[Rfam]
RNA: Bacterial RNase P class A
Nucleotides: 394
Stems, first nucleotide, its partner, number of pairs: 001390010011379001012359007020041002024037005046377003050374005055262004062296004067258005072086005087101001088099004102253002107251002109247003123194002125190007202220006222242001223240007266316004276305003287301005323342004328337003
Number, partner (000 for none) and nucleotide at each position: 001390u002389g003388a004387g005386u006385a007384g008383a009382u010381c011379a012359g013358a014357u015356g016355a017354u018353c019000g020041c021040g022000g023000a024037c025036a026035u027034g028033g029000u030000u031000u032000u033028c034027c035026a036025u037024g038000g039000a040021c041020g042000a043000g044000g045000a046377a047376a048375g049000u050374c051373c052372g053371a054370g055262c056261u057260c058259c059000a060000u061000a062296g063295g064294g065293u066000a067258g068257g069256g070255c071254g072086c073085u074084g075083g076082g077000u078000a079000a080000c081000a082076c083075c084074c085073a086072g087101u088099g089098g090097g091096g092000g093000c094000g095000a096091c097090c098089c099088c100000a101087a102253g103252g104000a105000a106000a107251g108250u109247g110246c111245a112000a113000c114000a115000g116000a117000g118000a119000g120000a121000u122000a123194c124193c125190g126189c127188c128187a129186g130185a131184u132000c133000c134000c135000u136000u137000g138000u139000u140000c141000a142000g143000u144000a145000g146000c147000a148000a149000u150000g151000c152000u153000g154000u155000u156000a157000c158000u159000u160000g161000g162000g163000u164000g165000a166000g167000a168000a169000u170000a171000g172000c173000u174000u175000u176000u177000g178000a179000c180000a181000g182000c183000u184131a185130u186129c187128u188127g189126g190125u191000a192000a193124g194123g195000a196000u197000g198000g199000a200000a201000a202220g203219g204218u205217g206216a207215g208000g209000u210000a211000a212000g213000g214000g215207c216206u217205c218204a219203c220202c221000a222242g223240g224239g225238g226237c227236u228235a229234g230000g231000u232000g233000a234229c235228u236227a237226g238225u239224c240223u241000g242222c243000u244000a245111u246110g247109u248000a249000a250108a251107c252103c253102c254071c255070g256069u257068c258067u259058g260057g261056a262055g263000c264000a265000a266316g267315a268314c269313c270000a271000a272000g273000u274000a275000g276305g277304g278303a279000c280000u281000g282000a283000a284000a285000a286000a287301g288300c289299g290298g291297c292000g293065a294064c295063c296062c297291g298290u299289c300288g301287u302000g303278u304277c305276c306000c307000g308000u309000g310000g311000u312000a313269g314268g315267u316266u317000g318000c319000u320000u321000g322000a323342g324341c325340c326339g327000u328337c329336u330335g331000g332000u333000a334000a335330c336329a337328g338000c339326c340325g341324g342323c343000c344000u345000a346000g347000a348000u349000a350000g351000a352000u353018g354017a355016u356015c357014g358013u359012c360000g361000a362000a363000u364000a365000c366000a367000g368000a369000a370054c371053u372052c373051g374050g375048c376047u377046u378000a379011u380000a381010g382009a383008u384007u385006u386005g387004c388003u389002c390001a391000c392000u393000u394000a